[Rfam]
RNA sequence: GAGUUUUGACGAGUGGCAAGGUUAAUCCUUUAAGGAGUAGCCGUAGCGAAAGCAAUUAUCCGCACAGCAAUGGAGGGAUAACGUAGUAAAUGCGUCUAGUCACUUGUGUAAGACCCGAAUCCGGUCGAUCUACGCCUGAGCAGGUUGAAGCCCUACGAAAGUAGGGUGGAGGACCGAACCAGUUCUGAUGUGCAAAUCGUUUGGAUGACUUGGGUGUAGGGGUUAAAGGCUAAUCUAGGCCGGUAAUAGCGGGUU
Numbered sequence: 001g002a003g004u005u006u007u008g009a010c011g012a013g014u015g016g017c018a019a020g021g022u023u024a025a026u027c028c029u030u031u032a033a034g035g036a037g038u039a040g041c042c043g044u045a046g047c048g049a050a051a052g053c054a055a056u057u058a059u060c061c062g063c064a065c066a067g068c069a070a071u072g073g074a075g076g077g078a079u080a081a082c083g084u085a086g087u088a089a090a091u092g093c094g095u096c097u098a099g100u101c102a103c104u105u106g107u108g109u110a111a112g113a114c115c116c117g118a119a120u121c122c123g124g125u126c127g128a129u130c131u132a133c134g135c136c137u138g139a140g141c142a143g144g145u146u147g148a149a150g151c152c153c154u155a156c157g158a159a160a161g162u163a164g165g166g167u168g169g170a171g172g173a174c175c176g177a178a179c180c181a182g183u184u185c186u187g188a189u190g191u192g193c194a195a196a197u198c199g200u201u202u203g204g205a206u207g208a209c210u211u212g213g214g215u216g217u218a219g220g221g222g223u224u225a226a227a228g229g230c231u232a233a234u235c236u237a238g239g240c241c242g243g244u245a246a247u248a249g250c251g252g253g254u255u
Stems, first nucleotide, its partner, number of pairs: 005111002009107009020042004026036004046053002058079004065072002082094004114253002117250001121243006130219011141207001143175004150167007179204004185199001187198002221231003

A member of the RNA family "Archaeal large subunit ribosomal RNA" from Thermoplasmatales archaeon B_DKE, 255 nucleotides of a longer RNA. The source organism's lineage runs through Archaea, Methanobacteriati, Thermoplasmatota, Thermoplasmata and Thermoplasmatales. Rfam links the family to the GO terms ribosome and structural constituent of ribosome. A search with the family's covariance model found it, with a score of 2755 bits.